[Rfam]
RNA sequence: AUUUCUGCUUAUAAGUCUGAUGUGAGGGAGUAUGUUUAUCUCCUACACAUCAGACUUAUAAGCAGAACU
Numbered sequence: 001a002u003u004u005c006u007g008c009u010u011a012u013a014a015g016u017c018u019g020a021u022g023u024g025a026g027g028g029a030g031u032a033u034g035u036u037u038a039u040c041u042c043c044u045a046c047a048c049a050u051c052a053g054a055c056u057u058a059u060a061a062g063c064a065g066a067a068c069u
Stems, first nucleotide, its partner, number of pairs: 005065020026044005